[Rfam]
RNA sequence: CUCUUAUACAGAGAGGGGGAGGGACUGGCCCUAUGAACCCUCGGCAACCAUUGAAUUGACUCAAACGGUGCCAAUUCCAGCAGAUCCUUGUGACAGGGUCUGAAAUAUAAGAG
Numbered sequence: 001c002u003c004u005u006a007u008a009c010a011g012a013g014a015g016g017g018g019g020a021g022g023g024a025c026u027g028g029c030c031c032u033a034u035g036a037a038c039c040c041u042c043g044g045c046a047a048c049c050a051u052u053g054a055a056u057u058g059a060c061u062c063a064a065a066c067g068g069u070g071c072c073a074a075u076u077c078c079a080g081c082a083g084a085u086c087c088u089u090g091u092g093a094c095a096g097g098g099u100c101u102g103a104a105a106u107a108u109a110a111g112a113g
Stems, first nucleotide, its partner, number of pairs: 001113008013042005021031003025080004043072004048068002051064004076105001081102008
The record is a 113-nucleotide sequence from Novibacillus thermophilus, which matches "SAM riboswitch aptamer (S box leader)" in Rfam. The source organism's lineage runs through Bacteria, Bacillati, Bacilli, Caryophanales and Novibacillus. The match comes from Rfam's covariance-model search (98 bits).